RNA sequence: AUAUAAGCAAAAAUUCAUAUUUUAGAUUCAUUCAAUAAAUGAUGUAUGUUGUCUACAAUAAAGACCACAUACAUCAUUUAUUGAAUGAAUCUAAAACAUAAAUUUUUGCUUAUAU
Numbered sequence: 001a002u003a004u005a006a007g008c009a010a011a012a013a014u015u016c017a018u019a020u021u022u023u024a025g026a027u028u029c030a031u032u033c034a035a036u037a038a039a040u041g042a043u044g045u046a047u048g049u050u051g052u053c054u055a056c057a058a059u060a061a062a063g064a065c066c067a068c069a070u071a072c073a074u075c076a077u078u079u080a081u082u083g084a085a086u087g088a089a090u091c092u093a094a095a096a097c098a099u100a101a102a103u104u105u106u107u108g109c110u111u112a113u114a115u
Stems, first nucleotide, its partner, number of pairs: 002114006009107005015101001017099002020096006027089018049067001051065002
RNA: MIR2593 microRNA precursor family
Organism: Medicago truncatula